[Rfam]
RNA sequence: GAAACCUCAUCUUCAGUCGCGCUAUCCGGGCGCGUCGAAUAAGUGUUUUUUAACACGAGCGAGCGUCCGCUCGGGUGAGGAGAAAGU
Numbered sequence: 001g002a003a004a005c006c007u008c009a010u011c012u013u014c015a016g017u018c019g020c021g022c023u024a025u026c027c028g029g030g031c032g033c034g035u036c037g038a039a040u041a042a043g044u045g046u047u048u049u050u051u052a053a054c055a056c057g058a059g060c061g062a063g064c065g066u067c068c069g070c071u072c073g074g075g076u077g078a079g080g081a082g083a084a085a086g087u
Stems, first nucleotide, its partner, number of pairs: 005080008016040002018037001019033005043056005057072004
Rfam assigns this 87-nucleotide RNA sequence to the family "RAGATH-10 RNA". By type it is a small RNA. The sequence is in the family's curated seed alignment.